[Rfam]
RNA: RAGATH-18 RNA
RNA sequence: CCUAUGGAGAGUACAAGAACUUGUAAGUAGUGUCUGAAAAAUUUCAGGACGAAAGCAUACUCGAAGACGUAGGAA
Number, nucleotide and partner (000 for none) at each position: 001c073002c072003u071004a070005u069006g000007g000008a000009g062010a061011g060012u059013a058014c000015a000016a000017g000018a000019a000020c000021u000022u057023g056024u055025a000026a000027g000028u000029a000030g050031u049032g000033u000034c000035u046036g045037a000038a000039a000040a000041a000042u000043u000044u000045c036046a035047g000048g000049a031050c030051g000052a000053a000054a000055g024056c023057a022058u013059a012060c011061u010062c009063g000064a000065a000066g000067a000068c000069g005070u004071a003072g002073g001074a000075a000